[Rfam]
Rfam assigns this 57-nucleotide RNA from Baryphthengus martii to the family "Small nucleolar RNA SNORD121A". Rfam 15.1 lists 881 matches to the family in 444 species. The literature on the family includes a 2006 paper in Nucleic Acids Res by Yang et al., "snoSeeker: an advanced computational package for screening of guide and orphan snoRNA genes in the human genome". The base pairs follow the family's consensus structure, which was predicted with WAR. It is annotated as a C/D-box small nucleolar RNA.
RNA sequence: UGCCAGAAAACUAUGAUGUGUUAUUUCCAAGAACAUAUCUGACUGCGUUUUCUGGAA
Numbered sequence: 001u002g003c004c005a006g007a008a009a010a011c012u013a014u015g016a017u018g019u020g021u022u023a024u025u026u027c028c029a030a031g032a033a034c035a036u037a038u039c040u041g042a043c044u045g046c047g048u049u050u051u052c053u054g055g056a057a
Stems, first nucleotide, its partner, number of pairs: 001057001003055004008050004